[Rfam]
RNA sequence: UUUGCGGAUAGGAACCAAGUGAUAACUUUUUCUUACCUGGGCCGAUAAACCGCAGAAAUAGGCAGCCUGUGUUAAGGUCGUUUGAUGUACCAGUGUACUUUGAGCAUUACCGACAUGGUCGACAUUU
Numbered sequence: 001u002u003u004g005c006g007g008a009u010a011g012g013a014a015c016c017a018a019g020u021g022a023u024a025a026c027u028u029u030u031u032c033u034u035a036c037c038u039g040g041g042c043c044g045a046u047a048a049a050c051c052g053c054a055g056a057a058a059u060a061g062g063c064a065g066c067c068u069g070u071g072u073u074a075a076g077g078u079c080g081u082u083u084g085a086u087g088u089a090c091c092a093g094u095g096u097a098c099u100u101u102g103a104g105c106a107u108u109a110c111c112g113a114c115a116u117g118g119u120c121g122a123c124a125u126u127u
Stems, first nucleotide, its partner, number of pairs: 003054005011043002015040003019036004024031002067118007076111003080105002083102003087098004
Dot-bracket structure: ..(((((...((..(((.((((.((....)).)))).))).))......)))))............(((((((..(((.((.(((.((((....)))).))).))...)))))))))).........
Shown here is a 127-nucleotide RNA from Pristionchus pacificus, a member of the family "Nematode snoRNA ceN39". Its family is annotated with nucleolus and RNA processing in the Gene Ontology. By type it is an H/ACA-box small nucleolar RNA. Rfam 15.1 lists 95 matches to the family in 44 species. The match comes from Rfam's covariance-model search (45 bits). The base pairs follow the family's consensus structure, which was predicted with RNAalifold.